[Rfam]
RNA sequence: GCAGGAGUAUGACCUACAAAUUGACAGACGAUGUGCCUGAGUCUGUCUGUCACUUCUGUAGGCCAACAUCCUGU
Numbered sequence: 001g002c003a004g005g006a007g008u009a010u011g012a013c014c015u016a017c018a019a020a021u022u023g024a025c026a027g028a029c030g031a032u033g034u035g036c037c038u039g040a041g042u043c044u045g046u047c048u049g050u051c052a053c054u055u056c057u058g059u060a061g062g063c064c065a066a067c068a069u070c071c072u073g074u
Base pairs, nucleotide, nucleotide: 001074002073003072004071005070006069010065011064013062014061015060016059019055020054022052023051024050025049026048027047028046029045030044

The family of this 74-nucleotide sequence from Cavia porcellus is "mir-192/215 microRNA precursor family". Gene Ontology terms of the family: miRNA-mediated post-transcriptional gene silencing and RISC complex. Lineage of the source: Eukaryota > Craniata > Teleostomi > Euarchontoglires > Cavia. For this family Rfam cites "New microRNAs from mouse and human" (Lagos-Quintana et al., RNA, 2003). This family represents the human microRNA (miRNA) precursors mir-192 and mir-215. Animal miRNAs are transcribed as ~70nt precursors and subsequently processed by the Dicer enzyme to give a ~22nt product. In this case the mature sequence comes from the 5' arm of the precursor. The extents of the hairpin precursors are not generally known and are estimated based on hairpin prediction. The family has 48 seed sequences and 810 matches in Rfam 15.1. It scores 60 bits against the family's covariance model.